[Rfam]
RNA sequence: GGCCGAUGCGCGGGAGAGCCCGCCCGUUUCCGGGUAGAACCGGAAAGCAGGCGGCACCGAAGGAGCAACCGCCCCGGAAACUCUCAGGUACAAGGGACCGCGCACCGGCA
Numbered sequence: 001g002g003c004c005g006a007u008g009c010g011c012g013g014g015a016g017a018g019c020c021c022g023c024c025c026g027u028u029u030c031c032g033g034g035u036a037g038a039a040c041c042g043g044a045a046a047g048c049a050g051g052c053g054g055c056a057c058c059g060a061a062g063g064a065g066c067a068a069c070c071g072c073c074c075c076g077g078a079a080a081c082u083c084u085c086a087g088g089u090a091c092a093a094g095g096g097a098c099c100g101c102g103c104a105c106c107g108g109c110a
Stems, first nucleotide, its partner, number of pairs: 007104007020054004056089003059085002063083003069077002
This 110-nucleotide RNA from Qipengyuania atrilutea belongs to the Rfam family "Glycine riboswitch aptamer". It scores 56 bits against the family's covariance model. Gene Ontology term of the family: glycine biosynthetic process. Rfam describes the family as follows. This family represents the bacterial glycine riboswitch. Pairs were carried over by alignment from the consensus structure.